This 132-nucleotide RNA sequence from Caenorhabditis japonica belongs to the Rfam family "Caenorhabditis snoRNA ceN126".

RNA sequence: AUGCAGUCGUUCAGUGGCGCUGGCGAUUUUCUCAAUGCGCCUGUGCCUAAUCUUUGACUGCGAUAUCAUUGUUGUCAUAGUCAAGCGGUCCGCUACCAGUGUAGCAUUCUGUUCAAGAUUUGACUUAUAUUU
Numbered sequence: 001a002u003g004c005a006g007u008c009g010u011u012c013a014g015u016g017g018c019g020c021u022g023g024c025g026a027u028u029u030u031c032u033c034a035a036u037g038c039g040c041c042u043g044u045g046c047c048u049a050a051u052c053u054u055u056g057a058c059u060g061c062g063a064u065a066u067c068a069u070u071g072u073u074g075u076c077a078u079a080g081u082c083a084a085g086c087g088g089u090c091c092g093c094u095a096c097c098a099g100u101g102u103a104g105c106a107u108u109c110u111g112u113u114c115a116a117g118a119u120u121u122g123a124c125u126u127a128u129a130u131u132u
Stems, first nucleotide, its partner, number of pairs: 003061007016047005022041004074124004079120004084113005092105005

NCBI's taxonomy places the organism under Eukaryota, Opisthokonta, Rhabditida, Rhabditoidea, Caenorhabditis. For this family Rfam cites "Systematic identification of non-coding RNA 2,2,7-trimethylguanosine cap structures in Caenorhabditis elegans" (Jia et al., BMC Mol Biol, 2007). The family's RNA type in Rfam is H/ACA-box small nucleolar RNA.